Rfam assigns this 149-nucleotide sequence from Oryza glumipatula to the family "small nucleolar RNA snoR135". The family has 6 seed sequences and 837 matches in Rfam 15.1. Gene Ontology terms of the family: RNA processing and nucleolus.
[Rfam]
RNA sequence: CAUGCAGGACUAGUAUAAAUGGAGCUGCACAUACAAUUUCAUUGUACAUGCUGCUUAAACUUUCCUGCUAAACCAGUUUUGGGAAAAAUGGGCAGUUGAGUUAGGCCAAUUUAUCUAUGGUUUCCUCAACAAUCAUUUUUCCCACAUGU
Numbered sequence: 001c002a003u004g005c006a007g008g009a010c011u012a013g014u015a016u017a018a019a020u021g022g023a024g025c026u027g028c029a030c031a032u033a034c035a036a037u038u039u040c041a042u043u044g045u046a047c048a049u050g051c052u053g054c055u056u057a058a059a060c061u062u063u064c065c066u067g068c069u070a071a072a073c074c075a076g077u078u079u080u081g082g083g084a085a086a087a088a089u090g091g092g093c094a095g096u097u098g099a100g101u102u103a104g105g106c107c108a109a110u111u112u113a114u115c116u117a118u119g120g121u122u123u124c125c126u127c128a129a130c131a132a133u134c135a136u137u138u139u140u141c142c143c144a145c146a147u148g149u
Stems, first nucleotide, its partner, number of pairs: 004068006013047006081143011095130006